[Rfam]
Nucleotides: 090
Base pairs, nucleotide, nucleotide: 006053007052008051009050010049011048012047015044016043017078018077019076020075029040030039031038032037067085068084069083070082071081
Number, partner (000 for none) and nucleotide at each position: 001000u002000g003000u004000g005000c006053g007052c008051g009050u010049c011048g012047c013000g014000a015044c016043u017078g018077g019076c020075g021000c022000a023000a024000c025000g026000c027000a028000g029040g030039u031038g032037g033000g034000u035000c036000a037032c038031c039030a040029c041000c042000g043016g044015g045000g046000a047012g048011c049010g050009a051008c052007g053006c054000a055000g056000c057000a058000g059000c060000a061000g062000a063000c064000u065000a066000c067085g068084g069083g070082u071081c072000g073000u074000a075020c076019g077018c078017c079000u080000g081071g082070g083069c084068c085067c086000c087000g088000g089000g090000u
Rfam assigns this 90-nucleotide RNA from Cellulomonas fimi to the family "ZMP/ZTP riboswitch aptamer (pfl RNA motif)". Pairs were carried over by alignment from the consensus structure, which is taken from published work. NCBI's taxonomy places the organism under Bacteria, Bacillati, Actinomycetes, Cellulomonadaceae, Cellulomonas.